[Rfam]
RNA sequence: GAGACUAACGUCUAUGCGAGUGUUUGGGUGGAUAAAACCCAUUAACGCGGAAUGAAAGUGAACGUAGGUCGGAGCCCCCUUGGGGGCGCACGAUCGACCGAUCCCGAUGUUUUACCGGAGGGAUUUGAGUAAGAGCAUAGCUGUUGGGACCCGAAAGAUGGUGAACUAUGCCUGAAUAGGGUGAAGCCAGAGGAAACUCUGGUGGAGGCUCGCAGCGGUUCUGACGUGCAAAUCGAUCGUCGAAUUUGGGUAUAGGGGCGAAAGACUAAUCGAACCAUCUAGUAGCUGGUU
Numbered sequence: 001g002a003g004a005c006u007a008a009c010g011u012c013u014a015u016g017c018g019a020g021u022g023u024u025u026g027g028g029u030g031g032a033u034a035a036a037a038c039c040c041a042u043u044a045a046c047g048c049g050g051a052a053u054g055a056a057a058g059u060g061a062a063c064g065u066a067g068g069u070c071g072g073a074g075c076c077c078c079c080u081u082g083g084g085g086g087c088g089c090a091c092g093a094u095c096g097a098c099c100g101a102u103c104c105c106g107a108u109g110u111u112u113u114a115c116c117g118g119a120g121g122g123a124u125u126u127g128a129g130u131a132a133g134a135g136c137a138u139a140g141c142u143g144u145u146g147g148g149a150c151c152c153g154a155a156a157g158a159u160g161g162u163g164a165a166c167u168a169u170g171c172c173u174g175a176a177u178a179g180g181g182u183g184a185a186g187c188c189a190g191a192g193g194a195a196a197c198u199c200u201g202g203u204g205g206a207g208g209c210u211c212g213c214a215g216c217g218g219u220u221c222u223g224a225c226g227u228g229c230a231a232a233u234c235g236a237u238c239g240u241c242g243a244a245u246u247u248g249g250g251u252a253u254a255g256g257g258g259c260g261a262a263a264g265a266c267u268a269a270u271c272g273a274a275c276c277a278u279c280u281a282g283u284a285g286c287u288g289g290u291u
Base pairs, nucleotide, nucleotide: 005147006146007145008144009143010142012140013139014138015137016136017135020048021047022046025041026040027039028038029037052059053058067095068094069093070092071091074087075086076085097130098129099127100126101125102123103122104121108117109116150289151288153286157279158278159277160276161275162274166255167254168253169252170251171250172249173248174247175246176245177243179211180210181209182208186203187202188201189200190199191198192197215240216239217238218237220236221235223234224233257267258266
Eukaryotic large subunit ribosomal RNA: a 291-nucleotide part of an RNA from Brettanomyces bruxellensis. Its family is annotated with ribosome and structural constituent of ribosome in the Gene Ontology. A reference for the family is Yusupov et al. (2001), "Crystal structure of the ribosome at 5.5 A resolution", Science. The family's consensus secondary structure is taken from published work.